[Rfam]
RNA: FMN riboswitch aptamer (RFN element)
Organism: Desulfoluna spongiiphila
RNA sequence: CCUUAUUCUCAGGGCGGGGUGAAAUUCCCCACCGGCGGUAAGCCUCUACGGCAAGCCCGCGAGCGCUCUUUUCGGUAAAUAACCGAAAAUGAGGUCAGCAGAUCCGGUGUGAUUCCGGAGCCGACGGUUAAAGUCCGGAUGGAAGAGGAUAGGU
Numbered sequence: 001c002c003u004u005a006u007u008c009u010c011a012g013g014g015c016g017g018g019g020u021g022a023a024a025u026u027c028c029c030c031a032c033c034g035g036c037g038g039u040a041a042g043c044c045u046c047u048a049c050g051g052c053a054a055g056c057c058c059g060c061g062a063g064c065g066c067u068c069u070u071u072u073c074g075g076u077a078a079a080u081a082a083c084c085g086a087a088a089a090u091g092a093g094g095u096c097a098g099c100a101g102a103u104c105c106g107g108u109g110u111g112a113u114u115c116c117g118g119a120g121c122c123g124a125c126g127g128u129u130a131a132a133g134u135c136c137g138g139a140u141g142g143a144a145g146a147g148g149a150u151a152g153g154u
Stems, first nucleotide, its partner, number of pairs: 003152008017029003031134002033123002035060004055121002063099002103119005125137003